[Rfam]
RNA sequence: GGCCUGCUCUAUGUGAUGAAAGCAACGUUGGUAGGGACAUCUGAGACUGCUGAUGAAUGCCAACGUCUCUGAUGCGGGGCC
Number, nucleotide and partner (000 for none) at each position: 001g081002g080003c079004c078005u077006g000007c000008u000009c000010u000011a000012u000013g000014u000015g000016a000017u000018g000019a000020a000021a000022g000023c000024a000025a000026c000027g000028u000029u000030g000031g000032u000033a000034g000035g000036g000037a000038c000039a000040u000041c000042u000043g000044a000045g000046a000047c000048u000049g000050c000051u000052g000053a000054u000055g000056a000057a000058u000059g000060c000061c000062a000063a000064c000065g000066u000067c000068u000069c000070u000071g000072a000073u000074g000075c000076g000077g005078g004079g003080c002081c001
Shown here is an 81-nucleotide sequence from Phascolarctos cinereus, a member of the family "Small nucleolar RNA SNORD74". The literature on the family includes a 2002 paper in Mol Cell Biol by Galardi et al., "Purified box C/D snoRNPs are able to reproduce site-specific 2'-O-methylation of target RNA in vitro". Rfam classes the family as a C/D-box small nucleolar RNA. The source organism's lineage runs through Eukaryota, Opisthokonta, Amniota, Metatheria and Phascolarctos. The base pairs follow the family's consensus structure, which was predicted with PFOLD.